RNA sequence: UAGAUGGCGACAUCUAGGUGAGAAGAACGGAUAGCGAAAUCGUGGCUUGACAAACAGGAACAGAAUAUAAGGCGUAACAGGUGGGCAAGCUAGCUAUAGAUAGCAAAGACCAAAAAGGUAACCGUAAACCCAAAGCGUAAAUUCUGCAAGUAAACUAUGACCAUUUG
Numbered sequence: 001u002a003g004a005u006g007g008c009g010a011c012a013u014c015u016a017g018g019u020g021a022g023a024a025g026a027a028c029g030g031a032u033a034g035c036g037a038a039a040u041c042g043u044g045g046c047u048u049g050a051c052a053a054a055c056a057g058g059a060a061c062a063g064a065a066u067a068u069a070a071g072g073c074g075u076a077a078c079a080g081g082u083g084g085g086c087a088a089g090c091u092a093g094c095u096a097u098a099g100a101u102a103g104c105a106a107a108g109a110c111c112a113a114a115a116a117g118g119u120a121a122c123c124g125u126a127a128a129c130c131c132a133a134a135g136c137g138u139a140a141a142u143u144c145u146g147c148a149a150g151u152a153a154a155c156u157a158u159g160a161c162c163a164u165u166u167g
Base pairs, nucleotide, nucleotide: 001016002015003014004013005012006011028167029166030165031164032163035159039158040157042155043154045151046150047149048148049147061146062145063144064143065142066141072138073137074136080130081129082128083111084110086108089104090103091102092101

A member of the RNA family "Group II catalytic intron D1-D4-3" from Anaerococcus prevotii, 167 nucleotides long. For this family Rfam cites "The ins and outs of group II introns" (Bonen and Vogel, Trends Genet, 2001). The pairing is the family consensus, mapped onto this sequence. Lineage of the source: Bacteria > Bacillati > Tissierellia > Anaerococcus > Anaerococcus prevotii. Rfam links the family to the GO term Group II intron splicing.